[Rfam]
RNA: c-di-GMP-I-GGC riboswitch aptamer
RNA sequence: CCUGAAAAGGGCAAACCUGCCGCAAGGCAGGGGCGCAAAAUUACCGGUCCUAAGGAUGUGCGCGGACAGCGGGAUUACCAGGU
Numbered sequence: 001c002c003u004g005a006a007a008a009g010g011g012c013a014a015a016c017c018u019g020c021c022g023c024a025a026g027g028c029a030g031g032g033g034c035g036c037a038a039a040a041u042u043a044c045c046g047g048u049c050c051u052a053a054g055g056a057u058g059u060g061c062g063c064g065g066a067c068a069g070c071g072g073g074a075u076u077a078c079c080a081g082g083u
Stems, first nucleotide, its partner, number of pairs: 003080002011036002016031006034069001039076004044072003047067003